[Rfam]
RNA sequence: GGGUGCGUGAUAAAUGUCAUCGCGCAGGAAUCGAGGUGGUCGGGCCGCCACCU
Numbered sequence: 001g002g003g004u005g006c007g008u009g010a011u012a013a014a015u016g017u018c019a020u021c022g023c024g025c026a027g028g029a030a031u032c033g034a035g036g037u038g039g040u041c042g043g044g045c046c047g048c049c050a051c052c053u
Base pairs, nucleotide, nucleotide: 005025006024007023008022009021010020011019034053035052036051037050038049039048040047
nhaA-I RNA: a 53-nucleotide RNA.
The family's RNA type in Rfam is riboswitch.
It is one of the family's seed sequences.
The family's consensus secondary structure is taken from published work.